[Rfam]
RNA sequence: GGCUCUGUGAUUGCAUGCCUGAUUGGGCAAUAUACGCUAUUCCGACUCGAUUCAUGAGCU
Numbered sequence: 001g002g003c004u005c006u007g008u009g010a011u012u013g014c015a016u017g018c019c020u021g022a023u024u025g026g027g028c029a030a031u032a033u034a035c036g037c038u039a040u041u042c043c044g045a046c047u048c049g050a051u052u053c054a055u056g057a058g059c060u
Stems, first nucleotide, its partner, number of pairs: 001060005